[Rfam]
RNA sequence: CUAUUCCCUCCGUCCCAUAAUGUAAGACGUUUUUUGGCACUAGACUAGUGCCAAAAAACAUCUUACAUUAUGGCACGGAGGGAGUAC
Numbered sequence: 001c002u003a004u005u006c007c008c009u010c011c012g013u014c015c016c017a018u019a020a021u022g023u024a025a026g027a028c029g030u031u032u033u034u035u036g037g038c039a040c041u042a043g044a045c046u047a048g049u050g051c052c053a054a055a056a057a058a059c060a061u062c063u064u065a066c067a068u069u070a071u072g073g074c075a076c077g078g079a080g081g082g083a084g085u086a087c
Base pairs, nucleotide, nucleotide: 003085004084005083007081008080009079010078011077013075015073016072017071019069020068021067022066023065024064025063026062027061029059030058031057032056033055034054035053036052037051038050039049040048041047